The family of this 174-nucleotide RNA sequence from Agrilactobacillus composti is "M-box riboswitch aptamer (ykoK leader)". The literature on the family includes a 2004 paper in Proc Natl Acad Sci U S A by Barrick et al., "New RNA motifs suggest an expanded scope for riboswitches in bacterial genetic control".
RNA sequence: UUAUAACAAAAAUAAAUUAGAGGCUCCUACAUGGACACAGGCUGCUGUACAGAAACGUUGCGAAACGCCAAUGUAUAAGACAGAGAUAGUCGAACGAAGGCUAGCUCCCAAGCAGCUAAAGUGUGUACCACUUUUACGACGUGUAGUGCUGAAAUUAGAGUAAUCUAGUUCAGA
Numbered sequence: 001u002u003a004u005a006a007c008a009a010a011a012a013u014a015a016a017u018u019a020g021a022g023g024c025u026c027c028u029a030c031a032u033g034g035a036c037a038c039a040g041g042c043u044g045c046u047g048u049a050c051a052g053a054a055a056c057g058u059u060g061c062g063a064a065a066c067g068c069c070a071a072u073g074u075a076u077a078a079g080a081c082a083g084a085g086a087u088a089g090u091c092g093a094a095c096g097a098a099g100g101c102u103a104g105c106u107c108c109c110a111a112g113c114a115g116c117u118a119a120a121g122u123g124u125g126u127a128c129c130a131c132u133u134u135u136a137c138g139a140c141g142u143g144u145a146g147u148g149c150u151g152a153a154a155u156u157a158g159a160g161u162a163a164u165c166u167a168g169u170u171c172a173g174a
Stems, first nucleotide, its partner, number of pairs: 005170003009166001011161001013098001015156003022150003027146007041116005047076005056067004083107003089101003118134005
Dot-bracket structure: ....(((.(.(.[.(((....(((..(((((((.......(((((.(((((....((((....))))....)))))......(((...(((......])))...)))....))))).(((((.......))))).....))))))).)))...)))....)....).)))....
Background: From the family's description: M-box riboswitch, also know as ykoK leader is described as a metaloregulatory RNA that sense divalent metals and function as a genetic control element of genes related to divalent metal transport in bacteria. It scores 105 bits against the family's covariance model. Lineage of the source: Bacteria > Bacillota > Lactobacillaceae > Agrilactobacillus > Agrilactobacillus composti.